[Rfam]
RNA: small nucleolar RNA snoR134
Nucleotides: 161
Base pairs, nucleotide, nucleotide: 003072004071005070006069007068008067011065025060026059027058028057029056030054031053032051033050083154084153085152086151087150091143092142094140095139096138097137099135103130104129105128
Number, partner (000 for none) and nucleotide at each position: 001000u002000c003072g004071c005070a006069c007068g008067a009000u010000c011065u012000c013000u014000c015000c016000c017000g018000g019000a020000g021000u022000c023000c024000c025060g026059g027058g028057c029056u030054u031053u032051u033050c034000u035000g036000a037000u038000g039000a040000a041000u042000u043000u044000c045000a046000u047000g048000a049000c050033g051032a052000a053031g054030a055000u056029a057028g058027c059026c060025c061000c062000a063000a064000a065011g066000c067008u068007c069006g070005u071004g072003c073000u074000a075000c076000a077000a078000c079000c080000c081000a082000c083154g084153c085152u086151g087150u088000c089000u090000g091143u092142g093000u094140u095139g096138c097137a098000a099135a100000u101000u102000a103130g104129c105128c106000c107000u108000c109000u110000a111000u112000a113000c114000c115000u116000u117000u118000a119000c120000u121000u122000u123000c124000c125000c126000a127000u128105g129104g130103c131000u132000c133000u134000u135099u136000c137097u138096g139095u140094g141000u142092c143091g144000a145000a146000u147000u148000c149000u150087a151086c152085g153084g154083c155000u156000a157000c158000a159000u160000u161000u